[Rfam]
SAM riboswitch aptamer (S box leader): a 97-nucleotide RNA from Staphylococcus epidermidis.
RNA sequence: AACUUAUCAAGAGAAGUGGAGGGACUGGCCCAAAGAAGCUUCGGCAACAUUGUAUCAUGUGCCAAUUCCAGUAACCGAGAAGGUUAGAAGAUAAGGU
Numbered sequence: 001a002a003c004u005u006a007u008c009a010a011g012a013g014a015a016g017u018g019g020a021g022g023g024a025c026u027g028g029c030c031c032a033a034a035g036a037a038g039c040u041u042c043g044g045c046a047a048c049a050u051u052g053u054a055u056c057a058u059g060u061g062c063c064a065a066u067u068c069c070a071g072u073a074a075c076c077g078a079g080a081a082g083g084u085u086a087g088a089a090g091a092u093a094a095g096g097u
Base pairs, nucleotide, nucleotide: 001097003095004094005093006092007091008090013042014041015040016039017038021031022030023029025071026070027069028068043063044062045061046060048059049058067089072086073085074084075083076082
The source organism's lineage runs through Bacteria, Bacilli, Caryophanales, Staphylococcaceae and Staphylococcus epidermidis.